RNA sequence: GAGGGUUCUCAGGGCGGGGUGUAAGUCCCCACCGGCGGUAAUCAUGCCAAGGCAUGUAGCCCGCGGGCGCUCAUCAGCAAUUAUCAUUAACAAUAUUGUUUAUGAGGACAGCAGAUCUGGUGUGAUUCCAGAGCCGACGGUUACAGUCCGGUUAUGAGAAAAGAUCG
Numbered sequence: 001g002a003g004g005g006u007u008c009u010c011a012g013g014g015c016g017g018g019g020u021g022u023a024a025g026u027c028c029c030c031a032c033c034g035g036c037g038g039u040a041a042u043c044a045u046g047c048c049a050a051g052g053c054a055u056g057u058a059g060c061c062c063g064c065g066g067g068c069g070c071u072c073a074u075c076a077g078c079a080a081u082u083a084u085c086a087u088u089a090a091c092a093a094u095a096u097u098g099u100u101u102a103u104g105a106g107g108a109c110a111g112c113a114g115a116u117c118u119g120g121u122g123u124g125a126u127u128c129c130a131g132a133g134c135c136g137a138c139g140g141u142u143a144c145a146g147u148c149c150g151g152u153u154a155u156g157a158g159a160a161a162a163g164a165u166c167g
Stems, first nucleotide, its partner, number of pairs: 003165001006162002009159002017029003031147002033136002035064004059134002067112002116132005138150003

A member of the RNA family "FMN riboswitch aptamer (RFN element)" from Zhongshania aliphaticivorans, 167 nucleotides long.
Taxonomically the source falls in Zhongshania (Bacteria, Pseudomonadota, Gammaproteobacteria, Spongiibacteraceae).
Pairs were carried over by alignment from the consensus structure, which is taken from published work.